[Rfam]
RNA: Actinobacteria sRNA Ms_IGR-5
RNA sequence: ACACGGGAAAGGAGGUGAUCCGAGGAAUGAAUUCCCAUCGGACGCGUGAGGUGGCUGCCCGCUAGCAGCCCCCAGCAGUGCUGAGGAGGGGCGAGAUCGUCCCUCGCGCUGUUGGCGAAUCACCAGCAGCCACCCGACCCGCAGGCGAACCGGGAACGUCCCCCGGUGCGGUCCGCACGGACCACGCCUGCGGGUCGUCCUUU
Numbered sequence: 001a002c003a004c005g006g007g008a009a010a011g012g013a014g015g016u017g018a019u020c021c022g023a024g025g026a027a028u029g030a031a032u033u034c035c036c037a038u039c040g041g042a043c044g045c046g047u048g049a050g051g052u053g054g055c056u057g058c059c060c061g062c063u064a065g066c067a068g069c070c071c072c073c074a075g076c077a078g079u080g081c082u083g084a085g086g087a088g089g090g091g092c093g094a095g096a097u098c099g100u101c102c103c104u105c106g107c108g109c110u111g112u113u114g115g116c117g118a119a120u121c122a123c124c125a126g127c128a129g130c131c132a133c134c135c136g137a138c139c140c141g142c143a144g145g146c147g148a149a150c151c152g153g154g155a156a157c158g159u160c161c162c163c164c165g166g167u168g169c170g171g172u173c174c175g176c177a178c179g180g181a182c183c184a185c186g187c188c189u190g191c192g193g194g195u196c197g198u199c200c201u202u203u
Stems, first nucleotide, its partner, number of pairs: 014059004019054001060117007068109002071106001075102001135197013149167006